[Rfam]
RNA: Small nucleolar RNA snoR111
Organism: Populus tomentosa
RNA sequence: UUAAGGAAUAGAAGAGACAGAUUAGUGUCUCUUUUGCUCGGAAGAACAGAGGUAGAACAAAUGCAAUGGCCGAGAUAUCGUUUCAGUCGUCGUUCUUUGAUUGACGAUUCGAUUGUUGCUCGCCAACAU
Numbered sequence: 001u002u003a004a005g006g007a008a009u010a011g012a013a014g015a016g017a018c019a020g021a022u023u024a025g026u027g028u029c030u031c032u033u034u035u036g037c038u039c040g041g042a043a044g045a046a047c048a049g050a051g052g053u054a055g056a057a058c059a060a061a062u063g064c065a066a067u068g069g070c071c072g073a074g075a076u077a078u079c080g081u082u083u084c085a086g087u088c089g090u091c092g093u094u095c096u097u098u099g100a101u102u103g104a105c106g107a108u109u110c111g112a113u114u115g116u117u118g119c120u121c122g123c124c125a126a127c128a129u
Stems, first nucleotide, its partner, number of pairs: 006039002009036003014031006069124001071122004077113004086108007094100002